[Rfam]
RNA sequence: GCGGAUGUGGCGGAACUGGUAGACGCACUGGAUUUAGGUUCCAGCGCCGCAAGGCGUGGGGGUUCGACUCCCUCCAUCCGCA
Numbered sequence: 001g002c003g004g005a006u007g008u009g010g011c012g013g014a015a016c017u018g019g020u021a022g023a024c025g026c027a028c029u030g031g032a033u034u035u036a037g038g039u040u041c042c043a044g045c046g047c048c049g050c051a052a053g054g055c056g057u058g059g060g061g062g063u064u065c066g067a068c069u070c071c072c073u074c075c076a077u078c079c080g081c082a
Stems, first nucleotide, its partner, number of pairs: 001081007010026003028044005058074005
RNA: tRNA